[Rfam]
RNA sequence: AAGUAUUAGUUGUGGCAGAUGAUUGACACUGUUUGACACAAUUUGAGCUAGCUAUAGCAACAAAAUCCAGCCUAUUCCAGUGUUCUCCUCUAUGAGACAAGCCAUCAUGUAGACUUAGACAGU
Numbered sequence: 001a002a003g004u005a006u007u008a009g010u011u012g013u014g015g016c017a018g019a020u021g022a023u024u025g026a027c028a029c030u031g032u033u034u035g036a037c038a039c040a041a042u043u044u045g046a047g048c049u050a051g052c053u054a055u056a057g058c059a060a061c062a063a064a065a066u067c068c069a070g071c072c073u074a075u076u077c078c079a080g081u082g083u084u085c086u087c088c089u090c091u092a093u094g095a096g097a098c099a100a101g102c103c104a105u106c107a108u109g110u111a112g113a114c115u116u117a118g119a120c121a122g123u
Base pairs, nucleotide, nucleotide: 010046011040012039013038014037016035017034018033019032020031021030063116064115066113067112069110073109074108075107080102081101084097085096086095087094

Shown here is a 123-nucleotide RNA from Myotis lucifugus, a member of the family "Small nucleolar RNA SNORA28".
The base pairs follow the family's consensus structure, which was predicted with RNAfold.
Rfam classes the family as an H/ACA-box small nucleolar RNA.
ACA28 is a member of the H/ACA class of snoRNA that guide the sites of modification of uridines to pseudouridines.
A reference for the family is Huttenhofer et al. (2001), "RNomics: an experimental approach that identifies 201 candidates for novel, small, non-messenger RNAs in mouse", EMBO J.